[Rfam]
RNA: RT-13 RNA
Organism: Microvirga vignae
RNA sequence: GUGUGCGUUCGAGGGACGCUCAGGGUUUCCUGAAGUCCCGGGCUAGGACUAGUCCCUCGAACUCUGC
Numbered sequence: 001g002u003g004u005g006c007g008u009u010c011g012a013g014g015g016a017c018g019c020u021c022a023g024g025g026u027u028u029c030c031u032g033a034a035g036u037c038c039c040g041g042g043c044u045a046g047g048a049c050u051a052g053u054c055c056c057u058c059g060a061a062c063u064c065u066g067c
Stems, first nucleotide, its partner, number of pairs: 007062011020033005035049004